[Rfam]
RNA sequence: UCGGCCGCGGGUGAUGGAUCUCGCCCGGGCCGCGCCGGCCCGAACCGCCGACAAGGCUGAUGGCUCCUGUUCCGAU
Numbered sequence: 001u002c003g004g005c006c007g008c009g010g011g012u013g014a015u016g017g018a019u020c021u022c023g024c025c026c027g028g029g030c031c032g033c034g035c036c037g038g039c040c041c042g043a044a045c046c047g048c049c050g051a052c053a054a055g056g057c058u059g060a061u062g063g064c065u066c067c068u069g070u071u072c073c074g075a076u
Stems, first nucleotide, its partner, number of pairs: 010025004016067003020063002047057003